[Rfam]
RNA: mir-130 microRNA precursor family
RNA sequence: CCCAGGCCUAUGCUCUUUCCACUAGGCCACACUGCAGAAGCAGCGUGGCUCAGUGGAAAGAGCAUGGGCUUUGGA
Numbered sequence: 001c002c003c004a005g006g007c008c009u010a011u012g013c014u015c016u017u018u019c020c021a022c023u024a025g026g027c028c029a030c031a032c033u034g035c036a037g038a039a040g041c042a043g044c045g046u047g048g049c050u051c052a053g054u055g056g057a058a059a060g061a062g063c064a065u066g067g068g069c070u071u072u073g074g075a
Base pairs, nucleotide, nucleotide: 002074003073005070006069007068008067009066010065012063013062014061015060016059017058018057019056022053023052025050026049027048028047029046030045
Dot-bracket structure: .((.((((((.((((((((..((.((((((..............)))))).))..)))))))).))))))..)).